[Rfam]
RNA sequence: AACUUGAUAGUAUUGGAAAAAAAGUAAAUCUUCUACCAUACUAUUUAUUUCUAUUAUUGUAAUGUAUAAAGAUACAAGC
Numbered sequence: 001a002a003c004u005u006g007a008u009a010g011u012a013u014u015g016g017a018a019a020a021a022a023a024g025u026a027a028a029u030c031u032u033c034u035a036c037c038a039u040a041c042u043a044u045u046u047a048u049u050u051c052u053a054u055u056a057u058u059g060u061a062a063u064g065u066a067u068a069a070a071g072a073u074a075c076a077a078g079c
Stems, first nucleotide, its partner, number of pairs: 006045008015036001017034001019032002022029001
Notes
A member of the RNA family "Plastid-psbM 3UTR RNA" from Gossypium laxum, 79 nucleotides long. A search with the family's covariance model found it, with a score of 54 bits. The literature on the family includes a 2023 paper in Plant Commun by Richter et al., "Retrograde signaling in plants: A critical review focusing on the GUN pathway and beyond". Lineage of the source: Eukaryota > Streptophyta > Pentapetalae > malvids > Gossypium. Rfam describes the family as follows. Plastid psbM is a non-coding RNA (ncRNA) recognised in plastids. It was found in the three prime untranslated region (3UTR) of psbM gene, its 3UTR location suggests a role in transcript maturation.